[Rfam]
Overview
A member of the RNA family "small nucleolar RNA snoR114" from Cajanus cajan, 91 nucleotides long.
RNA sequence: GAGCGGUGAUGAGGUCUGUGUCAAUUCAGAUAGAUGGGUCUAUCUUUGCUUCUGAUUCUUAUUCAGAGGAAAAUAUGGCACUUCAGAGCUC
Numbered sequence: 001g002a003g004c005g006g007u008g009a010u011g012a013g014g015u016c017u018g019u020g021u022c023a024a025u026u027c028a029g030a031u032a033g034a035u036g037g038g039u040c041u042a043u044c045u046u047u048g049c050u051u052c053u054g055a056u057u058c059u060u061a062u063u064c065a066g067a068g069g070a071a072a073a074u075a076u077g078g079c080a081c082u083u084c085a086g087a088g089c090u091c
Stems, first nucleotide, its partner, number of pairs: 001091004
Record summary: The literature on the family includes a 2009 paper in Nucleic Acids Res by Chen and Wu, "Mining small RNA sequencing data: a new approach to identify small nucleolar RNAs in Arabidopsis". The base pairs follow the family's consensus structure, which was predicted with RNAalifold.